Shown here is a 134-nucleotide RNA from Castor canadensis, a member of the family "Small nucleolar RNA SNORA51". Taxonomically the source falls in Castor (Eukaryota, Metazoa, Glires, Rodentia). By type it is an H/ACA-box small nucleolar RNA. Its family is annotated with RNA processing and nucleolus in the Gene Ontology. About the family: ACA51 is a member of the H/ACA class of snoRNA that guide the sites of modification of uridines to pseudouridines. Pairs were carried over by alignment from the consensus structure, which was predicted with PFOLD.

[Rfam]
RNA sequence: GGCCUCCUAGUGCUUACUACAGACUGUGUUCUUACACUGACUGUAUAGAUGUCAAGGAGGAAAAGUAAACCUGCCCCAUAUAUACCUCAGUCCAGGCCCUGUGUCUGGUCUGUGUUGUGAAUAGGGAGAUAUGU
Numbered sequence: 001g002g003c004c005u006c007c008u009a010g011u012g013c014u015u016a017c018u019a020c021a022g023a024c025u026g027u028g029u030u031c032u033u034a035c036a037c038u039g040a041c042u043g044u045a046u047a048g049a050u051g052u053c054a055a056g057g058a059g060g061a062a063a064a065g066u067a068a069a070c071c072u073g074c075c076c077c078a079u080a081u082a083u084a085c086c087u088c089a090g091u092c093c094a095g096g097c098c099c100u101g102u103g104u105c106u107g108g109u110c111u112g113u114g115u116u117g118u119g120a121a122u123a124g125g126g127a128g129a130u131a132u133g134u
Base pairs, nucleotide, nucleotide: 003060004059005058006057007056008055020043021042022041026037027036028035029034074126075125076124078122079121088112089111090110092108093107094106095105096104097103